Notes
Shown here is a 376-nucleotide RNA from Schaalia sp. 19OD2882, a member of the family "transfer-messenger RNA". Pairs were carried over by alignment from the consensus structure, which is taken from published work. Taxonomically the source falls in Schaalia (Bacteria, Bacillati, Actinomycetota, Actinomycetales).
RNA sequence: GGGGAUGAUCGGUUUCGACGACGGUCGUCGAUCGAGGGGAAGCGGGCCGAGGAUGCGCGCUCUACUCGCAAACGAUGCGUGCAAACCAAUAGGUGCCGAACAGAAUCGCACCGACUACGUUCUCGCCGCCUGAUUGCCGCGUGAACCUUUAGUCCGUCAGCCCAGGUGGUGCUCCCAGCCUGGUGUCUGGCGUCGUUCAGGGAGCCACUGGGUGGGGGUCGUGUCGGCUGGCCCCCUCCGACACCCAGUCGACUGAGCCCAUCCGGUAGCAGGUCUGCAUGACGCCGGGGGCUGAGAAAUGAUCCAGCAGACUGCGCCCGGAGAAGACCUCGGGGUCGGCCGUCGGACGGGGGUUCGAUUCCCCCCAUCUCCACUU
Numbered sequence: 001g002g003g004g005a006u007g008a009u010c011g012g013u014u015u016c017g018a019c020g021a022c023g024g025u026c027g028u029c030g031a032u033c034g035a036g037g038g039g040a041a042g043c044g045g046g047c048c049g050a051g052g053a054u055g056c057g058c059g060c061u062c063u064a065c066u067c068g069c070a071a072a073c074g075a076u077g078c079g080u081g082c083a084a085a086c087c088a089a090u091a092g093g094u095g096c097c098g099a100a101c102a103g104a105a106u107c108g109c110a111c112c113g114a115c116u117a118c119g120u121u122c123u124c125g126c127c128g129c130c131u132g133a134u135u136g137c138c139g140c141g142u143g144a145a146c147c148u149u150u151a152g153u154c155c156g157u158c159a160g161c162c163c164a165g166g167u168g169g170u171g172c173u174c175c176c177a178g179c180c181u182g183g184u185g186u187c188u189g190g191c192g193u194c195g196u197u198c199a200g201g202g203a204g205c206c207a208c209u210g211g212g213u214g215g216g217g218g219u220c221g222u223g224u225c226g227g228c229u230g231g232c233c234c235c236c237u238c239c240g241a242c243a244c245c246c247a248g249u250c251g252a253c254u255g256a257g258c259c260c261a262u263c264c265g266g267u268a269g270c271a272g273g274u275c276u277g278c279a280u281g282a283c284g285c286c287g288g289g290g291g292c293u294g295a296g297a298a299a300u301g302a303u304c305c306a307g308c309a310g311a312c313u314g315c316g317c318c319c320g321g322a323g324a325a326g327a328c329c330u331c332g333g334g335g336u337c338g339g340c341c342g343u344c345g346g347a348c349g350g351g352g353g354u355u356c357g358a359u360u361c362c363c364c365c366c367a368u369c370u371c372c373a374c375u376u
Stems, first nucleotide, its partner, number of pairs: 001372007019345009032333006043320005048068004054083007121144002124141003128137002155192006162183006171205006211239002214236006223253005256293005269286001273312004349365005
On this family, see Williams and Bartel, RNA 1996: "Phylogenetic analysis of tmRNA secondary structure".